[Rfam]
RNA sequence: AUACUUACCUGGACGGGGUCUUUGGGCGAUCAACAAGGCCUAUGGCCUGGGCCGGUGACCUCCAUUGCACUUUCGGAGGGGUGCUCGCCUAAGGUCUGUCCAACGUGGCAGAGCCUACGUCAUAAUUUGUGGUAGAGGGGGCCUGCGUCCGCGCGGCCCCUCC
Numbered sequence: 001a002u003a004c005u006u007a008c009c010u011g012g013a014c015g016g017g018g019u020c021u022u023u024g025g026g027c028g029a030u031c032a033a034c035a036a037g038g039c040c041u042a043u044g045g046c047c048u049g050g051g052c053c054g055g056u057g058a059c060c061u062c063c064a065u066u067g068c069a070c071u072u073u074c075g076g077a078g079g080g081g082u083g084c085u086c087g088c089c090u091a092a093g094g095u096c097u098g099u100c101c102a103a104c105g106u107g108g109c110a111g112a113g114c115c116u117a118c119g120u121c122a123u124a125a126u127u128u129g130u131g132g133u134a135g136a137g138g139g140g141g142c143c144u145g146c147g148u149c150c151g152c153g154c155g156g157c158c159c160c161u162c163c
Stems, first nucleotide, its partner, number of pairs: 012121004016048005023042005049090003053087001055084003059080003062076002092116003095112003099108002137162005144155004
Rfam assigns this 163-nucleotide RNA from Momordica charantia to the family "U1 spliceosomal RNA". Pairs were carried over by alignment from the consensus structure, which is taken from published work. The match comes from Rfam's covariance-model search (137 bits). The family's RNA type in Rfam is spliceosomal small nuclear RNA.